[Rfam]
RNA sequence: CUCGGAAGUCGGGCGGACGUGGCAUUCGCCAACCCGGUCAGGUCCGGAAGGAAGCAGCCGUAACGAUUUCGUCGCGGGUCGUUCCGGCUUCCACCAUU
Dot-bracket structure: ...(((((..(((((..(((((((.(((......((((....(((....)))....))))...))).)..))))))...)))))...)))))......
This 98-nucleotide sequence from Parasphingopyxis lamellibrachiae belongs to the Rfam family "Bacterial small signal recognition particle RNA".
Rfam's curators write: The signal recognition particle (SRP) is a universally conserved ribonucleoprotein involved in the co-translational targeting of proteins to membranes.
On this family, see Rosenblad et al., Nucleic Acids Res 2003: "SRPDB: Signal Recognition Particle Database".
The family's consensus secondary structure is taken from published work.
A search with the family's covariance model found it, with a score of 61 bits.
The family is grouped with related families in Rfam's "SRP clan".